[Rfam]
RNA sequence: AGAGGCCCUCCGUGGCCGGGGUGGGACGUUUGCCGCAUCGCUGUGGUGACGAGGCAAGCAUUCCGCCAGGCCACUCACGCUGCCCGC
Numbered sequence: 001a002g003a004g005g006c007c008c009u010c011c012g013u014g015g016c017c018g019g020g021g022u023g024g025g026a027c028g029u030u031u032g033c034c035g036c037a038u039c040g041c042u043g044u045g046g047u048g049a050c051g052a053g054g055c056a057a058g059c060a061u062u063c064c065g066c067c068a069g070g071c072c073a074c075u076c077a078c079g080c081u082g083c084c085c086g087c
Stems, first nucleotide, its partner, number of pairs: 004084003012074006020067007028059006038049004
A member of the RNA family "mir-9195 microRNA precursor family" from Myotis myotis, 87 nucleotides long. Gene Ontology terms of the family: miRNA-mediated post-transcriptional gene silencing and RISC complex. A search with the family's covariance model found it, with a score of 92 bits.